The record is a 416-nucleotide part of an RNA from Heterodermia speciosa, which matches "Eukaryotic large subunit ribosomal RNA" in Rfam. NCBI's taxonomy places the organism under Eukaryota, Ascomycota, Pezizomycotina, Lecanoromycetidae, Heterodermia.

RNA sequence: UAAUUUCGAAUUAAAUAAAAAUAUUUGUUAAAUUUAAACAUAUCAAUAAACGAAAAAAAAAUCAAUAAAAAUUAUUUUAAUAACAACAAAUAAAGCAAAAAAAAUUCAAAUUUAAAAUUUAAUUUCGUUAAAAUUCGAAUUGUAAUUUGAAAAAUGUGUUUCGAAUAAAACGUCGAUUUAAAUUUUUUGAAACAAAACGUUAUAAAAAAUAAAAAUUUUGUAUGCAAUCGAUAAUCGAUUUUAUGUAAAACUUUUUUGACAAAUCGAAUUGUUUGAAAAUGCAAUUUAAAAUAAAUGAUAUAUUUCAUUUAAAAUUAAAUAUCAAUUAAAAAUCGAUAACGCACAAAAAAAAUAAUCGAAAAAUGAAAAACAUUUUUAAAAAAAAUUAAAAAAUACGUGAAAUUGUUAAAAAAAAC
Number, nucleotide and partner (000 for none) at each position: 001u000002a000003a000004u000005u000006u000007c000008g000009a000010a000011u000012u000013a000014a000015a000016u000017a000018a000019a000020a000021a000022u000023a000024u055025u053026u052027g051028u050029u049030a000031a000032a000033u000034u000035u042036a041037a000038a000039c000040a000041u036042a035043u000044c000045a000046a000047u000048a000049a029050a028051c027052g026053a025054a000055a024056a000057a000058a000059a000060a000061a000062u069063c000064a000065a000066u000067a000068a000069a062070a000071a000072u000073u100074a000075u098076u097077u000078u000079a000080a000081u000082a000083a091084c000085a000086a000087c000088a000089a000090a000091u083092a000093a000094a000095g000096c000097a076098a075099a000100a073101a000102a000103a316104a315105u314106u313107c000108a000109a147110a146111u145112u144113u000114a000115a141116a140117a000118u138119u137120u000121a135122a134123u133124u132125u000126c000127g000128u000129u000130a000131a000132a124133a123134u122135u121136c000137g119138a118139a000140u116141u115142g000143u000144a112145a111146u110147u109148u000149g000150a000151a000152a257153a256154a254155u000156g252157u000158g000159u250160u249161u248162c000163g000164a241165a240166u000167a000168a000169a000170a235171c000172g232173u231174c230175g229176a228177u227178u226179u000180a000181a000182a000183u000184u197185u196186u195187u194188u000189g000190a000191a000192a000193c000194a187195a186196a185197a184198c000199g000200u000201u205202a000203u000204a000205a201206a000207a000208a218209a217210u000211a000212a000213a000214a000215a000216u000217u209218u208219u000220g000221u000222a000223u000224g000225c000226a178227a177228u176229c175230g174231a173232u172233a000234a000235u170236c000237g000238a000239u000240u165241u164242u000243a000244u000245g000246u000247a000248a161249a160250a159251c000252u156253u000254u154255u000256u153257u152258g000259a000260c000261a000262a000263a000264u000265c000266g287267a286268a285269u284270u283271g282272u281273u000274u000275g000276a000277a000278a000279a000280u000281g272282c271283a270284a269285u268286u267287u266288a000289a000290a000291a000292u000293a310294a309295a308296u307297g306298a000299u000300a000301u000302a000303u000304u000305u000306c297307a296308u295309u294310u293311a000312a000313a106314a105315u104316u103317a000318a000319a000320u000321a000322u000323c000324a000325a000326u000327u000328a000329a000330a000331a000332a000333u000334c000335g000336a000337u000338a000339a000340c000341g000342c000343a000344c000345a000346a000347a000348a000349a000350a000351a356352a000353u000354a000355a000356u351357c000358g000359a000360a000361a000362a000363a000364u000365g000366a000367a000368a000369a000370a000371c000372a000373u384374u383375u382376u381377u000378a000379a000380a000381a376382a375383a374384a373385a000386u000387u000388a000389a000390a000391a000392a000393a000394u000395a000396c000397g000398u000399g000400a000401a000402a000403u000404u000405g000406u000407u000408a000409a000410a000411a000412a000413a000414a000415a000416c000

Record summary:
The match comes from Rfam's covariance-model search (288 bits). The base pairs follow the family's consensus structure, which is taken from published work.